[Rfam]
RNA sequence: UCUUGACCUGGCUACUUAGUGAUAUGCGGCCCCUAGGCUUCCUUAAAUGGAUCCUAGUUCUGUUGGGCCUGGUCUUAUACACAACGGUAGUCCAGUGAUAAUUUCAGUAUAAGAAGGAAAUUACCAUAUUGCAGAUCCGAGGUGAACGCUAUGCUUUAACUAUCUAACACGGAGUCGGAGUGAUUUAAAGAUCGCUUAGACGAGCCAACAGUGGAAGAGCCGACACGUGAUUUAGCUACGCAUAGUUACUAACUGAAGACAGUUCUGCUUUGCUAUGGAUACAC
Numbered sequence: 001u002c003u004u005g006a007c008c009u010g011g012c013u014a015c016u017u018a019g020u021g022a023u024a025u026g027c028g029g030c031c032c033c034u035a036g037g038c039u040u041c042c043u044u045a046a047a048u049g050g051a052u053c054c055u056a057g058u059u060c061u062g063u064u065g066g067g068c069c070u071g072g073u074c075u076u077a078u079a080c081a082c083a084a085c086g087g088u089a090g091u092c093c094a095g096u097g098a099u100a101a102u103u104u105c106a107g108u109a110u111a112a113g114a115a116g117g118a119a120a121u122u123a124c125c126a127u128a129u130u131g132c133a134g135a136u137c138c139g140a141g142g143u144g145a146a147c148g149c150u151a152u153g154c155u156u157u158a159a160c161u162a163u164c165u166a167a168c169a170c171g172g173a174g175u176c177g178g179a180g181u182g183a184u185u186u187a188a189a190g191a192u193c194g195c196u197u198a199g200a201c202g203a204g205c206c207a208a209c210a211g212u213g214g215a216a217g218a219g220c221c222g223a224c225a226c227g228u229g230a231u232u233u234a235g236c237u238a239c240g241c242a243u244a245g246u247u248a249c250u251a252a253c254u255g256a257a258g259a260c261a262g263u264u265c266u267g268c269u270u271u272g273c274u275a276u277g278g279a280u281a282c283a284c
Stems, first nucleotide, its partner, number of pairs: 075090004095127003099123007131268005141254003148246005160235003168229004174224005195204002205214002

This 284-nucleotide RNA from Jingmen Miniopterus schreibersii alphacoronavirus 1 belongs to the Rfam family "Alphacoronavirus 3'UTR". The family's RNA type in Rfam is cis-regulatory element. The organism belongs to Alphacoronavirus, within Viruses. Its Rfam clan is "Coronavirus 3' UTR". On this family, see Madhugiri et al., Virus Res 2014: "RNA structure analysis of alphacoronavirus terminal genome regions". About the family: The 3' UTR of alphacoronaviruses consists of two small hairpins (PK-SL2) which can form an alternate conformation (PK-SL1) where the loop region of the second hairpin interacts with the stem of the first hairpin. Pairs were carried over by alignment from the consensus structure. Gene Ontology term of the family: viral RNA genome replication.